[Rfam]
RNA: Selenocysteine transfer RNA
RNA sequence: GCCAACCUGACCUUGACUGGCGUUGGGUGCGGACUUCAAAUCCGUAGGGGCCGGGAGGCCCAGAGGUUCAAUUCCUCCUGGUUGGC
Numbered sequence: 001g002c003c004a005a006c007c008u009g010a011c012c013u014u015g016a017c018u019g020g021c022g023u024u025g026g027g028u029g030c031g032g033a034c035u036u037c038a039a040a041u042c043c044g045u046a047g048g049g050g051c052c053g054g055g056a057g058g059c060c061c062a063g064a065g066g067u068u069c070a071a072u073u074c075c076u077c078c079u080g081g082u083u084g085g086c
Stems, first nucleotide, its partner, number of pairs: 001086007009078001012027006028046006048061005063077004